[Rfam]
RNA sequence: AUCUGCAAGGUGAAAAACAAGUCCCGGUUGGUAGCCCGGGAGCAGCAUGAAAGCUGUCAGGAACCUGCCUCCUUUGGUUGCUUGCAUGUACCGAAAAA
Numbered sequence: 001a002u003c004u005g006c007a008a009g010g011u012g013a014a015a016a017a018c019a020a021g022u023c024c025c026g027g028u029u030g031g032u033a034g035c036c037c038g039g040g041a042g043c044a045g046c047a048u049g050a051a052a053g054c055u056g057u058c059a060g061g062a063a064c065c066u067g068c069c070u071c072c073u074u075u076g077g078u079u080g081c082u083u084g085c086a087u088g089u090a091c092c093g094a095a096a097a098a
Base pairs, nucleotide, nucleotide: 004093005092008089010087011086022041023040024039025038026037027036042057043056044055045054046053067078068077069076
RNA: azaaromatic riboswitch aptamer (yjdF RNA)
Organism: Yeguia hominis